[Rfam]
RNA sequence: CUGGCAUCGGUGCUAGGGAGUGGGCCCCGAGGCGGGCCUCCUCUCAGGCCCCUUCUGGGUCCAGCACUCUUGCUUCGGGCCCG
Dot-bracket structure: ..(((.((((.((.((((.((.(..((((.((.(((((........)))))..))))))..).)).)))).)).)))))))..
This 83-nucleotide sequence from Tupaia belangeri belongs to the Rfam family "mir-1343 microRNA precursor family". The match comes from Rfam's covariance-model search (71 bits). The base pairs follow the family's consensus structure, which was predicted with RNAalifold. The source organism's lineage runs through Eukaryota, Chordata, Theria, Tupaiidae and Tupaia belangeri.